Rfam assigns this 75-nucleotide sequence from Alligator mississippiensis to the family "Mammalian CPEB3 ribozyme". Lineage of the source: Eukaryota > Teleostomi > Euteleostomi > Archelosauria > Alligator. It scores 47 bits against the family's covariance model.
RNA sequence: AGCUGUCAUAAUGGCCAUAGCAGAAGCGCUAGCAUUGCAGCCCUGUCAGAUUUUAAUGAAUCGGUGAAUUCUGCU
Numbered sequence: 001a002g003c004u005g006u007c008a009u010a011a012u013g014g015c016c017a018u019a020g021c022a023g024a025a026g027c028g029c030u031a032g033c034a035u036u037g038c039a040g041c042c043c044u045g046u047c048a049g050a051u052u053u054u055a056a057u058g059a060a061u062c063g064g065u066g067a068a069u070u071c072u073g074c075u
Stems, first nucleotide, its partner, number of pairs: 013042003019075007026038003047064001049062005